[Rfam]
About this RNA: Rfam assigns this 407-nucleotide RNA sequence from Sordaria macrospora to the family "Nuclear RNase P". Ribonuclease P (RNase P) is a ubiquitous endoribonuclease, found in archaea, bacteria and eukarya as well as chloroplasts and mitochondria. Gene Ontology terms of the family: tRNA processing, ribonuclease P complex and ribonuclease P activity. Taxonomically the source falls in Sordaria macrospora (Eukaryota, Dikarya, leotiomyceta, Sordariaceae). The base pairs follow the family's consensus structure, which is taken from published work. A search with the family's covariance model found it, with a score of 46 bits. It is annotated as a ribozyme. Its Rfam clan is "RNaseP clan".
RNA sequence: UCCUCUUCAACGCUGCGUUUCUAUGCUACGAACGGAGAGACUCGCGCAAGCGUUUCUUUCACAUCUUUCUACCAAGGCAUAUGAGAAAUUCGGAGAAAUCGCUUCACUUCAAGCCUUUUUUAAUCAUCAGGUCCACCUGGUGAUUUUUUGGCUCUACCGGCAACGGUCUGCGCGCGAUCCUCGCGUCUGUAAUUGGCAUCAGAAAAGCAGGGCGCUGGGCUUCCCUUGAUCGCUUGCGGUCGGGGGAUAGUUCCAGCGUUUCCUCUGGGAGGGCCAUUACGAAGCUUGUGAAUGAAAUCACUUGAGUGCAAUACGCAGCGUGCAUGCCCCCGUCCUUUCUUCCCCCUUUCGAGGGGGGUGGGAGAAUGAGGGACUGCACAAUUCGAUUCCGAUUACUCUGUUGAGGA
Dot-bracket structure: ((((...((..(((((((...((((.........((((((.......................))))))........)))).........[[[[[.....((((.................................................................(((((.......))))).....(.((((............(((.................................................)))........)))).)...))))...........................)))))))(((((..................................................))))).......]]]]].......))...))))